Shown here is a 112-nucleotide RNA from Rhizobium oryziradicis, a member of the family "Alphaproteobacterial ar15". It scores 100 bits against the family's covariance model. The family has 61 seed sequences and 316 matches in Rfam 15.1.

RNA sequence: AGCUGAUGCACACGGUGGCUUCCUCCCAGUUCCACCGCACCAGCUGUUCCCCUCUGGAGGUUAAAUUAACCUUCACACUUUAGGGCCCUGGAGCAAUCCGGUGGCCCCUUUU
Numbered sequence: 001a002g003c004u005g006a007u008g009c010a011c012a013c014g015g016u017g018g019c020u021u022c023c024u025c026c027c028a029g030u031u032c033c034a035c036c037g038c039a040c041c042a043g044c045u046g047u048u049c050c051c052c053u054c055u056g057g058a059g060g061u062u063a064a065a066u067u068a069a070c071c072u073u074c075a076c077a078c079u080u081u082a083g084g085g086c087c088c089u090g091g092a093g094c095a096a097u098c099c100g101g102u103g104g105c106c107c108c109u110u111u112u
Base pairs, nucleotide, nucleotide: 001045002044003043004042005041007039008038009037015035016034017033018032055075056074057073058072059071060070061069083107084106085105086104087103089100090099091098092097
By type it is a small RNA. NCBI's taxonomy places the organism under Bacteria, Pseudomonadati, Hyphomicrobiales, Rhizobiaceae, Rhizobium.